RNA sequence: AGCAAAAUGAUGAGGUACUUUGAUCUGAAUCUGAUGUUGAUUAAAAUUCAUUGUGACCUUCAAAGUUCUCUGAUUGCU
Numbered sequence: 001a002g003c004a005a006a007a008u009g010a011u012g013a014g015g016u017a018c019u020u021u022g023a024u025c026u027g028a029a030u031c032u033g034a035u036g037u038u039g040a041u042u043a044a045a046a047u048u049c050a051u052u053g054u055g056a057c058c059u060u061c062a063a064a065g066u067u068c069u070c071u072g073a074u075u076g077c078u
Base pairs, nucleotide, nucleotide: 001078002077003076004075005074

This 78-nucleotide RNA sequence from Apostasia shenzhenica belongs to the Rfam family "Small nucleolar RNA R160". Rfam classes the family as a C/D-box small nucleolar RNA. It scores 74 bits against the family's covariance model. From the family's description: snoR160 is a C/D box small nucleolar RNA, which acts as a methylation guide for 25S ribosomal RNA in plants. snoR160 has been alternatively named snoZ270 in rice. The literature on the family includes a 2003 paper in Nucleic Acids Res by Chen et al., "The high diversity of snoRNAs in plants: identification and comparative study of 120 snoRNA genes from Oryza sativa". Gene Ontology terms of the family: RNA processing and nucleolus. Rfam 15.1 lists 799 matches to the family in 221 species.